The record is a 174-nucleotide RNA from Thermophilibacter immobilis, which matches "Lysine riboswitch aptamer" in Rfam.
[Rfam]
RNA sequence: CAGAACGGUAGAGGUGCGGAUAAGAAGAGCCGUGGGAGAGCCGGCAGGCAGUGACCCCUCGGGGAGGCGAAUUCCGCCGAACCUCACGCGUCGGGCGCGGCGCGAGGGGUGGGCCUGCGAUAAACACUCGCAGGACUGUCUGCGGGAGUCACCCGCAGGGGCGCUACCCGCGAG
Numbered sequence: 001c002a003g004a005a006c007g008g009u010a011g012a013g014g015u016g017c018g019g020a021u022a023a024g025a026a027g028a029g030c031c032g033u034g035g036g037a038g039a040g041c042c043g044g045c046a047g048g049c050a051g052u053g054a055c056c057c058c059u060c061g062g063g064g065a066g067g068c069g070a071a072u073u074c075c076g077c078c079g080a081a082c083c084u085c086a087c088g089c090g091u092c093g094g095g096c097g098c099g100g101c102g103c104g105a106g107g108g109g110u111g112g113g114c115c116u117g118c119g120a121u122a123a124a125c126a127c128u129c130g131c132a133g134g135a136c137u138g139u140c141u142g143c144g145g146g147a148g149u150c151a152c153c154c155g156c157a158g159g160g161g162c163g164c165u166a167c168c169c170g171c172g173a174g
Base pairs, nucleotide, nucleotide: 007168008167009166010165011164016077017076018075019074020073021071024068030062031061032060034058035057036056081110082109083108084107085106087104088103089102090101091100092099111137112136114134115133116132117131118130119129120128139159140158141157142156143155144154145153
The base pairs follow the family's consensus structure, which is taken from published work. It scores 66 bits against the family's covariance model. Lineage of the source: Bacteria > Actinomycetota > Coriobacteriia > Atopobiaceae > Thermophilibacter.